Mammalian CPEB3 ribozyme: a 76-nucleotide RNA from Alligator mississippiensis. The source organism's lineage runs through Eukaryota, Metazoa, Chordata, Archosauria and Alligator. On this family, see Salehi-Ashtiani et al., Science 2006: "A genomewide search for ribozymes reveals an HDV-like sequence in the human CPEB3 gene".
[Rfam]
RNA sequence: AGAGGUAAGUUUGAGGCCAUUGCAGAAGCGCUCACGGCGCAGCCAAUCAGGGCCCAGCGAAUCUGUGAAUUCUGCU
Numbered sequence: 001a002g003a004g005g006u007a008a009g010u011u012u013g014a015g016g017c018c019a020u021u022g023c024a025g026a027a028g029c030g031c032u033c034a035c036g037g038c039g040c041a042g043c044c045a046a047u048c049a050g051g052g053c054c055c056a057g058c059g060a061a062u063c064u065g066u067g068a069a070u071u072c073u074g075c076u
Stems, first nucleotide, its partner, number of pairs: 015044003022075006028040003048065004054059001